This 75-nucleotide sequence from Firmicutes bacterium CAG:145 belongs to the Rfam family "S10-Clostridia ribosomal protein leader". Rfam classes the family as a cis-regulatory leader.

[Rfam]
RNA sequence: AAAUGGCGAAGAAGCGGGAAGUUGCUGAGCUAUCAGGUAAUUUCCGCCGAGCAUGUCCUUACUCGAUAAGGGCGG
Numbered sequence: 001a002a003a004u005g006g007c008g009a010a011g012a013a014g015c016g017g018g019a020a021g022u023u024g025c026u027g028a029g030c031u032a033u034c035a036g037g038u039a040a041u042u043u044c045c046g047c048c049g050a051g052c053a054u055g056u057c058c059u060u061a062c063u064c065g066a067u068a069a070g071g072g073c074g075g
Base pairs, nucleotide, nucleotide: 014047015046016045018044019043020042021041025036026035027034028033056075057074062072063071064070

A search with the family's covariance model found it, with a score of 40 bits.
NCBI's taxonomy places the organism under Bacteria, Bacillati, Bacillota.